Shown here is a 44-nucleotide RNA sequence from Galium aparine, a member of the family "Plastid-ycf3 group II-D1 intron".
The literature on the family includes a 2023 paper in Plant Commun by Richter et al., "Retrograde signaling in plants: A critical review focusing on the GUN pathway and beyond".
Pairs were carried over by alignment from the consensus structure, which was predicted with LocARNA.
Rfam's curators put it in the seed alignment.
Gene Ontology term of the family: Group II intron splicing.
About the family: Plastid rpl16 is a non-coding RNA (ncRNA) recognised in plastids. It was recognised in and intronic region of a ribosome rpl16 gene.
Nucleotides: 044
Stems, first nucleotide, its partner, number of pairs: 010025004032044001034042001
Number, partner (000 for none) and nucleotide at each position: 001000a002000u003000u004000c005000c006000c007000u008000c009000u010025g011024u012023c013022g014000c015000g016000u017000a018000u019000c020000c021000u022013c023012g024011a025010u026000u027000a028000a029000u030000g031000c032044a033000a034042c035000c036000u037000c038000g039000u040000a041000u042034g043000c044032u